Shown here is a 176-nucleotide sequence from Lysinibacillus alkalisoli, a member of the family "Lysine riboswitch aptamer". Gene Ontology term of the family: lysine biosynthetic process. The base pairs follow the family's consensus structure, which is taken from published work. It scores 113 bits against the family's covariance model. Taxonomically the source falls in Lysinibacillus (Bacteria, Bacillota, Caryophanales, Bacillaceae).

RNA sequence: AAAUGAGGUAGAGGUCGCGGUUUACAUAAGUAUGUAUGAUGAGAUGGAAGGCAUUUAAGACUCAUACAAAAAGGGUACAUCGCCGAAGCAAAAUAUGGCACUUCACAUAUUUUGUUGGGGCUGUCUUCGAAAGAAGCAGAACUGUCACGCCACAAGCGUGUUGAGCUAUCUAAGUA
Numbered sequence: 001a002a003a004u005g006a007g008g009u010a011g012a013g014g015u016c017g018c019g020g021u022u023u024a025c026a027u028a029a030g031u032a033u034g035u036a037u038g039a040u041g042a043g044a045u046g047g048a049a050g051g052c053a054u055u056u057a058a059g060a061c062u063c064a065u066a067c068a069a070a071a072a073g074g075g076u077a078c079a080u081c082g083c084c085g086a087a088g089c090a091a092a093a094u095a096u097g098g099c100a101c102u103u104c105a106c107a108u109a110u111u112u113u114g115u116u117g118g119g120g121c122u123g124u125c126u127u128c129g130a131a132a133g134a135a136g137c138a139g140a141a142c143u144g145u146c147a148c149g150c151c152a153c154a155a156g157c158g159u160g161u162u163g164a165g166c167u168a169u170c171u172a173a174g175u176a
Stems, first nucleotide, its partner, number of pairs: 006171006017083005023077003033068007087116011117143002121139004126134002146160005